[Rfam]
The record is a 60-nucleotide RNA sequence from Saimiri boliviensis, which matches "U7 small nuclear RNA" in Rfam. From the family's description: Animal histone pre-mRNAs are spliced by a different mechanism than nuclear pre-mRNAs and self-splicing introns.
RNA sequence: UAGUGUUCCAGCUCUUUUAGAAUCUGUCUACCAGUCUUUCUGGUUUUUACAGGAAGCUCA
Numbered sequence: 001u002a003g004u005g006u007u008c009c010a011g012c013u014c015u016u017u018u019a020g021a022a023u024c025u026g027u028c029u030a031c032c033a034g035u036c037u038u039u040c041u042g043g044u045u046u047u048u049a050c051a052g053g054a055a056g057c058u059c060a
Stems, first nucleotide, its partner, number of pairs: 034057001036056006043050002